[Rfam]
RNA: Transposase-1 RNA
RNA sequence: CAAGAGCCGGUCACUGUCAUUACCCUCACGUUAGGAUAUGGGAAUACCAGCGUUGA
Numbered sequence: 001c002a003a004g005a006g007c008c009g010g011u012c013a014c015u016g017u018c019a020u021u022a023c024c025c026u027c028a029c030g031u032u033a034g035g036a037u038a039u040g041g042g043a044a045u046a047c048c049a050g051c052g053u054u055g056a
Stems, first nucleotide, its partner, number of pairs: 006051002009048003017041004024035003
Dot-bracket structure: .....((.(((.....((((...(((......)))..))))....))).)).....